[Rfam]
RNA sequence: GGGUGCGGUGGCAACGCCGCAGGUCUCCGGAAAGGUCGGGCCGCCUUUC
Numbered sequence: 001g002g003g004u005g006c007g008g009u010g011g012c013a014a015c016g017c018c019g020c021a022g023g024u025c026u027c028c029g030g031a032a033a034g035g036u037c038g039g040g041c042c043g044c045c046u047u048u049c
Stems, first nucleotide, its partner, number of pairs: 005020006030049007
nhaA-I RNA: a 49-nucleotide sequence from Holophaga foetida. It is one of the family's seed sequences. About the family: Acidobacteria, Alphaproteobacteria, Betaproteobacteria and Gammaproteobacteria, Verrucomicrobia, cand. division NC10. The family's RNA type in Rfam is riboswitch. The source organism's lineage runs through Bacteria, Acidobacteriota, Holophagaceae, Holophaga and Holophaga foetida.